[Rfam]
RNA: mir-86 microRNA precursor family
RNA sequence: CCGCCGGUUAAGUGAAUGCUUUGCCACAGUCUUAGGAAAAGUAAGCUGGGCUAAGGUUCGCUUAGGCCGGAGG
Numbered sequence: 001c002c003g004c005c006g007g008u009u010a011a012g013u014g015a016a017u018g019c020u021u022u023g024c025c026a027c028a029g030u031c032u033u034a035g036g037a038a039a040a041g042u043a044a045g046c047u048g049g050g051c052u053a054a055g056g057u058u059c060g061c062u063u064a065g066g067c068c069g070g071a072g073g
Base pairs, nucleotide, nucleotide: 004070005069006068009064010063011062012061013060014059015058016057017056019055020054021053023051024050025049027048028047029046